[Rfam]
RNA sequence: CGCCGGGUCACUCCCCCCCAACGGGGAGCGCCCAUCUGGAAGGAUGGAGAGA
Numbered sequence: 001c002g003c004c005g006g007g008u009c010a011c012u013c014c015c016c017c018c019c020a021a022c023g024g025g026g027a028g029c030g031c032c033c034a035u036c037u038g039g040a041a042g043g044a045u046g047g048a049g050a051g052a
Base pairs, nucleotide, nucleotide: 011028012027013026014025015024016023032047033046034045035044036043037042
A member of the RNA family "serC leader" from Rhizobiales bacterium GAS113, 52 nucleotides long. On this family, see Corbino et al., Genome Biol 2005: "Evidence for a second class of S-adenosylmethionine riboswitches and other regulatory RNA motifs in alpha-proteobacteria". Its family is annotated with regulation of gene expression in the Gene Ontology. The pairing is the family consensus, mapped onto this sequence. Rfam's curators write: This family is a putative regulatory RNA structure that is found upstream of the serC-serA operon in some alpha-proteobacteria. The final stem of the structure overlaps the ribosome binding site of the serC reading frame.